[Rfam]
RNA sequence: GGCGAUAAAUAGUGGUGUGUAAUAGACACAGCGGACCCGGGGGCAGUACCCGGCGGCUCCACCACCACCAGCGGGCGACUGCUGUUGAUGACGGGGCCGAACCAGGAUCGACGUGUGUUAAAAGACAUCGUUUUUGCUCGGGCUGAGUAACCCGCAUAAGGCUCAAAACACACAAGUGCCAACGAUAACGAAGCACUCGCAAUCGCUGCGUAA
Numbered sequence: 001g002g003c004g005a006u007a008a009a010u011a012g013u014g015g016u017g018u019g020u021a022a023u024a025g026a027c028a029c030a031g032c033g034g035a036c037c038c039g040g041g042g043g044c045a046g047u048a049c050c051c052g053g054c055g056g057c058u059c060c061a062c063c064a065c066c067a068c069c070a071g072c073g074g075g076c077g078a079c080u081g082c083u084g085u086u087g088a089u090g091a092c093g094g095g096g097c098c099g100a101a102c103c104a105g106g107a108u109c110g111a112c113g114u115g116u117g118u119u120a121a122a123a124g125a126c127a128u129c130g131u132u133u134u135u136g137c138u139c140g141g142g143c144u145g146a147g148u149a150a151c152c153c154g155c156a157u158a159a160g161g162c163u164c165a166a167a168a169c170a171c172a173c174a175a176g177u178g179c180c181a182a183c184g185a186u187a188a189c190g191a192a193g194c195a196c197u198c199g200c201a202a203u204c205g206c207u208g209c210g211u212a213a
Stems, first nucleotide, its partner, number of pairs: 001138005015128004027117003031114003037053005054099007139154004

Rfam assigns this 213-nucleotide RNA sequence from Croceibacterium mercuriale to the family "permuted transfer-messenger RNA". A search with the family's covariance model found it, with a score of 136 bits. Rfam links the family to the GO term RNA catabolic process. From the family's description: Bacterial tmRNA, also known as 10Sa RNA or SsrA, is named for its dual tRNA and mRNA-like properties. Its role is to liberate the mRNA from a stalled ribosome. To accomplish this part of the tmRNA is used as a reading frame that ends in a translation stop signal. The family's RNA type in Rfam is non-coding RNA gene.